Shown here is a 309-nucleotide sequence from Colocasia esculenta, a member of the family "Plant signal recognition particle RNA". The family has 63 seed sequences and 4,988 matches in Rfam 15.1. The literature on the family includes a 2002 paper in Curr Opin Struct Biol by Wild et al., "Towards the structure of the mammalian signal recognition particle". It scores 209 bits against the family's covariance model. Rfam classes the family as a non-coding RNA gene.
RNA sequence: CAAUGGGUAACGCUAGCUUGUGACCCGAGUGGGGGCAUUAAGAUGGUUGGACAUAUGAGAUCCCACUCUGAUGGUAGGGUUCGGUGCGCAAUCUUUGCCAACUUGCCCGUUCCAAGUCAGGUAGCUGAGUCGGGUGUUCUGGGCGAAGGCCUGGUUCACACGGCUCUUAAAGUGGAGGGCACCGCGUGAGGCUGGCUUCACAGAGCAGCGAGAACCUCCCGCUCUUGACGGUGGAAGGAUAACAGGCCGGCGCGCUCGCCGGGCCCAAUUUAACCCCUUCAGGUGGUUCUUAAAUGGACAACCAUCUUU
Numbered sequence: 001c002a003a004u005g006g007g008u009a010a011c012g013c014u015a016g017c018u019u020g021u022g023a024c025c026c027g028a029g030u031g032g033g034g035g036c037a038u039u040a041a042g043a044u045g046g047u048u049g050g051a052c053a054u055a056u057g058a059g060a061u062c063c064c065a066c067u068c069u070g071a072u073g074g075u076a077g078g079g080u081u082c083g084g085u086g087c088g089c090a091a092u093c094u095u096u097g098c099c100a101a102c103u104u105g106c107c108c109g110u111u112c113c114a115a116g117u118c119a120g121g122u123a124g125c126u127g128a129g130u131c132g133g134g135u136g137u138u139c140u141g142g143g144c145g146a147a148g149g150c151c152u153g154g155u156u157c158a159c160a161c162g163g164c165u166c167u168u169a170a171a172g173u174g175g176a177g178g179g180c181a182c183c184g185c186g187u188g189a190g191g192c193u194g195g196c197u198u199c200a201c202a203g204a205g206c207a208g209c210g211a212g213a214a215c216c217u218c219c220c221g222c223u224c225u226u227g228a229c230g231g232u233g234g235a236a237g238g239a240u241a242a243c244a245g246g247c248c249g250g251c252g253c254g255c256u257c258g259c260c261g262g263g264c265c266c267a268a269u270u271u272a273a274c275c276c277c278u279u280c281a282g283g284u285g286g287u288u289c290u291u292a293a294a295u296g297g298a299c300a301a302c303c304a305u306c307u308u309u
Stems, first nucleotide, its partner, number of pairs: 001034001002019002004015003024033003040308010052296002056293001058291001059289002062286002067283005073277002077266008088255002092252001098250002102246004107238002110236005116229006123223003127166006134159003139154006167172001174219005183212001185210003192203003